[Rfam]
RNA sequence: CUGCGAAUAUUCUCGCUGUCCUGAUAUUUCAGUGAUCUGGGCAGGCUAGACAUUCGCUAUAUUAAAACUGCAGUUUGCCCCAGGGCUAGUUUUUGCUUCUAGUUCUGGUUUUGGUGAUGCUAGUGACAUGC
Numbered sequence: 001c002u003g004c005g006a007a008u009a010u011u012c013u014c015g016c017u018g019u020c021c022u023g024a025u026a027u028u029u030c031a032g033u034g035a036u037c038u039g040g041g042c043a044g045g046c047u048a049g050a051c052a053u054u055c056g057c058u059a060u061a062u063u064a065a066a067a068c069u070g071c072a073g074u075u076u077g078c079c080c081c082a083g084g085g086c087u088a089g090u091u092u093u094u095g096c097u098u099c100u101a102g103u104u105c106u107g108g109u110u111u112u113g114g115u116g117a118u119g120c121u122a123g124u125g126a127c128a129u130g131c
Base pairs, nucleotide, nucleotide: 003057004056005055016044017043018042019041020040021039023037024036025035067124068123069122070120071119080108081107082106083105084104085103086102087101088100089099
Shown here is a 131-nucleotide RNA sequence from Alligator mississippiensis, a member of the family "Small nucleolar RNA SNORA72". NCBI's taxonomy places the organism under Eukaryota, Metazoa, Sauria, Crocodylia, Alligator. A reference for the family is Ganot et al. (1997), "The family of box ACA small nucleolar RNAs is defined by an evolutionarily conserved secondary structure and ubiquitous sequence elements essential for RNA accumulation", Genes Dev. U72 is a member of the H/ACA class of snoRNAs. The snoRNA gene is located in intron 4 of the ribosomal L30 protein gene in human, mouse and chicken. The family's consensus secondary structure was predicted with PFOLD. The family's RNA type in Rfam is H/ACA-box small nucleolar RNA.